[Rfam]
The record is a 115-nucleotide sequence from Leptolyngbya iicbica, which matches "Guanidine-I riboswitch aptamer" in Rfam. For this family Rfam cites "New RNA motifs suggest an expanded scope for riboswitches in bacterial genetic control" (Barrick et al., Proc Natl Acad Sci U S A, 2004). Rfam links the family to the GO term regulation of gene expression.
RNA sequence: GAACUUAGCGUCUAGGGUUCCGGCUUGGUUGAUUUAACAAGUGUCUGGUCCGAGAGAUGCAGUUAGGCUUUUGUUAAUCAAGCCUAAUUCACGGAGGGAUAAAAGCCCGGGAGGA
Numbered sequence: 001g002a003a004c005u006u007a008g009c010g011u012c013u014a015g016g017g018u019u020c021c022g023g024c025u026u027g028g029u030u031g032a033u034u035u036a037a038c039a040a041g042u043g044u045c046u047g048g049u050c051c052g053a054g055a056g057a058u059g060c061a062g063u064u065a066g067g068c069u070u071u072u073g074u075u076a077a078u079c080a081a082g083c084c085u086a087a088u089u090c091a092c093g094g095a096g097g098g099a100u101a102a103a104a105g106c107c108c109g110g111g112a113g114g115a
Base pairs, nucleotide, nucleotide: 008060009059010058011057012056015051016050020048021047022045023042024041025040026039027038062088063087064086065085066084067083068082069081090110092113096108097107098106